Annotation: Alphaproteobacteria transfer-messenger RNA: a 349-nucleotide RNA sequence from Tropicibacter naphthalenivorans. By type it is a non-coding RNA gene. The match comes from Rfam's covariance-model search (316 bits). A reference for the family is Williams and Bartel (1996), "Phylogenetic analysis of tmRNA secondary structure", RNA.
Nucleotides: 349
Base pairs, nucleotide, nucleotide: 039052040051041050042049043048056186057185058184059183060182066179067178068176069175070174071173080165081164084162085161086160090106091105092104093103094102107147108146109145110144111143112142113141187202188201189200190199193212194211196210197209198208315330316329317328318327321346322345323344324343325342326341
Number, partner (000 for none) and nucleotide at each position: 001000c002000c003000c004000a005000u006000u007000g008000c009000a010000u011000c012000c013000g014000c015000c016000g017000c018000c019000c020000g021000c022000g023000c024000g025000c026000c027000u028000a029000u030000a031000u032000u033000c034000a035000c036000c037000c038000u039052g040051u041050u042049c043048c044000u045000u046000c047000g048043g049042g050041g051040a052039c053000u054000a055000u056186g057185g058184a059183c060182a061000u062000a063000a064000a065000c066179g067178c068176g069175c070174a071173u072000g073000u074000a075000a076000u077000a078000a079000a080165c081164g082000g083000a084162u085161c086160g087000g088000a089000c090106c091105c092104g093103g094102g095000g096000g097000c098000g099000g100000u101000a102094c103093c104092c105091g106090g107147c108146g109145u110144c111143u112142c113141c114000a115000c116000c117000a118000a119000u120000c121000a122000u123000c124000c125000u126000u127000c128000g129000u130000u131000u132000g133000g134000g135000g136000a137000u138000c139000a140000u141113g142112g143111g144110g145109a146108c147107g148000a149000a150000a151000c152000a153000g154000g155000a156000u157000c158000g159000a160086c161085g162084a163000a164081c165080g166000c167000g168000u169000a170000a171000a172000g173071a174070u175069g176068u177000a178067g179066c180000u181000u182060u183059g184058u185057c186056u187202c188201g189200g190199u191000g192000a193212g194211a195000u196210a197209c198208c199190a200189c201188c202187g203000u204000u205000a206000u207000c208198g209197g210196u211194u212193c213000a214000c215000a216000a217000a218000g219000u220000a221000c222000a223000a224000u225000u226000g227000c228000a229000a230000a231000c232000g233000a234000c235000a236000a237000u238000c239000g240000u241000g242000c243000u244000c245000c246000g247000g248000u249000u250000g251000c252000u253000c254000u255000g256000g257000c258000u259000g260000c261000g262000u263000a264000a265000g266000c267000a268000g269000u270000u271000c272000g273000a274000g275000g276000a277000a278000u279000c280000g281000a282000a283000a284000u285000c286000u287000a288000a289000g290000c291000c292000c293000u294000u295000g296000c297000g298000c299000c300000u301000a302000g303000c304000c305000g306000c307000g308000u309000a310000a311000g312000g313000c314000g315330g316329g317328g318327u319000u320000c321346g322345c323344a324343g325342g326341u327318a328317c329316c330315u331000g332000g333000c334000a335000a336000c337000a338000g339000a340000a341326a342325c343324c344323u345322g346321c347000a348000c349000u

From the family's description: Bacterial tmRNA, also known as 10Sa RNA or SsrA, is named for its dual tRNA and mRNA-like properties.